Overview: A member of the RNA family "Clostridiales-1 RNA" from Oscillospiraceae bacterium Marseille-Q3528, 164 nucleotides long.
RNA sequence: UGAUUACAGUGCCGAAGGUUCAGCUUUGCGUCAUGCUCGCAUGUAAGCAAAGAUGGAACUUUACGGCACGCCCCACAAUGAGGAAGUAGAGAUGCGAAGCGUCUCGGAUUCCGAAUGUGGGUAGAAUCGCGGGAGCUGCUGUGCAGCGUAGCGAUUCGUAAUCA
Numbered sequence: 001u002g003a004u005u006a007c008a009g010u011g012c013c014g015a016a017g018g019u020u021c022a023g024c025u026u027u028g029c030g031u032c033a034u035g036c037u038c039g040c041a042u043g044u045a046a047g048c049a050a051a052g053a054u055g056g057a058a059c060u061u062u063a064c065g066g067c068a069c070g071c072c073c074c075a076c077a078a079u080g081a082g083g084a085a086g087u088a089g090a091g092a093u094g095c096g097a098a099g100c101g102u103c104u105c106g107g108a109u110u111c112c113g114a115a116u117g118u119g120g121g122u123a124g125a126a127u128c129g130c131g132g133g134a135g136c137u138g139c140u141g142u143g144c145a146g147c148g149u150a151g152c153g154a155u156u157c158g159u160a161a162u163c164a
Stems, first nucleotide, its partner, number of pairs: 001164007010068004016061006022054001024052006032043004072121005078116002082112004089105007124157007135147004
Dot-bracket structure: (((((((..((((..(((((((.((((((..((((....))))...)))))).).))))))...))))...(((((.((..((((...(((((((...)))))))...))))..)))))))..(((((((....((((.....))))...))))))))))))))
Annotation
It is annotated as a small RNA. The match comes from Rfam's covariance-model search (113 bits). Taxonomically the source falls in Oscillospiraceae (Bacteria, Bacillati, Bacillota, Eubacteriales).